[Rfam]
The family of this 137-nucleotide RNA sequence from Erinaceus europaeus is "Small nucleolar RNA SNORA15".

Nucleotides: 137
Base pairs, nucleotide, nucleotide: 001056002055003054004053005052006051014043015042016041017040018039019038069130070129072126074124075123076122077121085119087115088114089113090112091111092110093109094108095107096106
Number, partner (000 for none) and nucleotide at each position: 001056g002055c003054a004053u005052g006051g007000c008000u009000g010000a011000a012000u013000a014043c015042u016041g017040u018039g019038u020000u021000c022000u023000u024000u025000u026000g027000a028000u029000c030000a031000g032000u033000a034000g035000u036000u037000u038019a039018c040017a041016c042015a043014g044000c045000c046000a047000g048000a049000c050000a051006c052005c053004a054003u055002g056001c057000a058000a059000a060000a061000g062000u063000a064000a065000a066000g067000u068000u069130u070129u071000c072126u073000c074124u075123c076122u077121g078000c079000a080000g081000u082000g083000a084000c085119u086000u087115u088114g089113g090112u091111a092110u093109g094108c095107u096106a097000a098000g099000a100000u101000u102000u103000g104000u105000g106096u107095g108094g109093c110092a111091u112090g113089u114088c115087a116000u117000c118000u119085g120000u121077u122076a123075g124074a125000a126072g127000u128000a129070g130069a131000u132000a133000c134000a135000a136000a137000u

Pairs were carried over by alignment from the consensus structure, which was predicted with RNAfold.
The sequence is in the family's curated seed alignment.
NCBI's taxonomy places the organism under Eukaryota, Opisthokonta, Metazoa, Chordata, Erinaceus.
For this family Rfam cites "RNomics: an experimental approach that identifies 201 candidates for novel, small, non-messenger RNAs in mouse" (Huttenhofer et al., EMBO J, 2001).
From the family's description: ACA15 is a member of the H/ACA class of snoRNA that guide the sites of modification of uridines to pseudouridines.